Shown here is a 304-nucleotide part of an RNA from Tigriopus californicus, a member of the family "Eukaryotic large subunit ribosomal RNA". For this family Rfam cites "Crystal structure of the ribosome at 5.5 A resolution" (Yusupov et al., Science, 2001). The base pairs follow the family's consensus structure, which is taken from published work.
[Rfam]
RNA sequence: GAGUCUAACAUGUGUGCGAGUCAAUGGGUUGUCUAAACCCAUAGGCAGAGUGAAAGCAAAGGUGGCUUCAUGUCACUGAGGGGUGAUGUCCUUGUGAUCGCAACCCCGGCACUUCGUAGAGACCUCGCUUCUCGCGGAGUAGCAAGAGCAUACACGUUGGGACCCGAAAGAUGGUGAACUAUGCCUGGCCAGGUUGAAGUCAGGGGAAACCCUGAUGGAGGACCGUAGCGAUUCUGACGUGCAAAUCGAUCGUCGGAGCUGGGUAUAGGGGCGAAAGACUAAUCGAACCAUCUAGUAGCUGGUU
Numbered sequence: 001g002a003g004u005c006u007a008a009c010a011u012g013u014g015u016g017c018g019a020g021u022c023a024a025u026g027g028g029u030u031g032u033c034u035a036a037a038c039c040c041a042u043a044g045g046c047a048g049a050g051u052g053a054a055a056g057c058a059a060a061g062g063u064g065g066c067u068u069c070a071u072g073u074c075a076c077u078g079a080g081g082g083g084u085g086a087u088g089u090c091c092u093u094g095u096g097a098u099c100g101c102a103a104c105c106c107c108g109g110c111a112c113u114u115c116g117u118a119g120a121g122a123c124c125u126c127g128c129u130u131c132u133c134g135c136g137g138a139g140u141a142g143c144a145a146g147a148g149c150a151u152a153c154a155c156g157u158u159g160g161g162a163c164c165c166g167a168a169a170g171a172u173g174g175u176g177a178a179c180u181a182u183g184c185c186u187g188g189c190c191a192g193g194u195u196g197a198a199g200u201c202a203g204g205g206g207a208a209a210c211c212c213u214g215a216u217g218g219a220g221g222a223c224c225g226u227a228g229c230g231a232u233u234c235u236g237a238c239g240u241g242c243a244a245a246u247c248g249a250u251c252g253u254c255g256g257a258g259c260u261g262g263g264u265a266u267a268g269g270g271g272c273g274a275a276a277g278a279c280u281a282a283u284c285g286a287a288c289c290a291u292c293u294a295g296u297a298g299c300u301g302g303u304u
Base pairs, nucleotide, nucleotide: 005160006159007158008157009156011154012153013152014151015150016149017148020046021045022044025041026040027039028038029037030036050057051056080107081106082105083104084103088098089097109143110142111140112139113138114137115136116135121130163302164301166299170292171291172290173289174288175287179268180267181266182265183264184263185262186261187260188259189258190256192224193223194222195221199216200215201214202213203212204211205210228253229252230251231250233249234248236247237246270280271279

Lineage of the source: Eukaryota > Metazoa > Mandibulata > Altocrustacea > Tigriopus. Clan: LSU clan. A search with the family's covariance model found it, with a score of 2981 bits.